[Rfam]
RNA sequence: CUUUUACAUUUUUGUUCAUUUAUUUAAUCCAUUUUAGAAUAAAGUUGUAACGUAACAGCGUGGGAAAAGUCAAGGGGUCUGAAUACUUUCCGAAGGCACUGUGUGUAUGUAUACAGUGCCA
Number, nucleotide and partner (000 for none) at each position: 001c000002u000003u000004u000005u000006a000007c000008a000009u000010u000011u000012u000013u000014g000015u000016u000017c000018a000019u000020u000021u000022a000023u000024u000025u000026a000027a000028u000029c076030c075031a000032u073033u072034u069035u068036a000037g000038a000039a000040u000041a000042a000043a000044g056045u000046u000047g000048u000049a000050a000051c000052g000053u000054a000055a000056c044057a000058g000059c000060g000061u000062g000063g000064g000065a000066a000067a000068a035069g034070u000071c000072a033073a032074g000075g030076g029077g000078u000079c000080u000081g000082a000083a000084u000085a000086c000087u000088u000089u000090c000091c000092g000093a000094a000095g120096g119097c118098a117099c116100u115101g114102u113103g000104u000105g000106u000107a000108u000109g000110u000111a000112u000113a102114c101115a100116g099117u098118g097119c096120c095121a000
RNA: Herpesvirus saimiri U RNA1/RNA2
Organism: Salmo trutta